[Rfam]
Nucleotides: 093
Base pairs, nucleotide, nucleotide: 002092003091004090005089006088008087009086010085011084012083013082014081015080016079017078018077019076020075021074022073023072024071026069027068032052033051034050035049056064057063
Number, partner (000 for none) and nucleotide at each position: 001000c002092u003091g004090u005089g006088g007000u008087g009086a010085g011084g012083u013082a014081g015080u016079a017078a018077g019076u020075u021074g022073u023072g024071u025000u026069g027068u028000u029000g030000u031000g032052g033051g034050g035049g036000u037000g038000g039000g040000a041000g042000a043000u044000u045000a046000c047000a048000g049035c050034c051033c052032c053000u054000a055000a056064a057063c058000u059000g060000g061000a062000g063057g064056u065000a066000c067000a068027a069026c070000u071024a072023u073022a074021c075020a076019a077018c078017u079016u080015a081014c082013u083012g084011c085010c086009u087008u088006c089005c090004a091003c092002a093000a

The record is a 93-nucleotide RNA sequence from Takifugu flavidus, which matches "let-7 microRNA precursor family" in Rfam. Taxonomically the source falls in Takifugu (Eukaryota, Opisthokonta, Actinopteri, Clupeocephala). The base pairs follow the family's consensus structure, which was predicted with RNAalifold. From the family's description: This family represents the microRNAs (miRNA) let-7 and mir-98. let-7 was identified from a study of developmental timing in C. elegans, and was later shown to be part of a much larger class of non-coding RNAs termed miRNAs.